The family of this 66-nucleotide RNA from Phrynocephalus forsythii is "Small nucleolar RNA SNORD42". About the family: snoRNA U42 is found in intron 3 of the ribosomal protein L23a (RPL23a) gene in humans and is also present in mice. Its family is annotated with RNA processing and nucleolus in the Gene Ontology. The literature on the family includes a 2002 paper in Mol Cell Biol by Galardi et al., "Purified box C/D snoRNPs are able to reproduce site-specific 2'-O-methylation of target RNA in vitro". Rfam classes the family as a C/D-box small nucleolar RNA. It scores 60 bits against the family's covariance model. Pairs were carried over by alignment from the consensus structure, which was predicted with PFOLD.
Nucleotides: 066
Stems, first nucleotide, its partner, number of pairs: 001066005
Number, partner (000 for none) and nucleotide at each position: 001066g002065u003064g004063c005062a006000g007000a008000u009000g010000a011000u012000g013000g014000a015000a016000a017000c018000a019000u020000g021000u022000u023000u024000u025000c026000a027000c028000c029000u030000g031000a032000g033000c034000a035000g036000a037000g038000u039000g040000a041000u042000g043000u044000u045000u046000u047000c048000a049000a050000a051000g052000g053000a054000a055000c056000c057000a058000c059000u060000g061000a062005u063004g064003c065002a066001c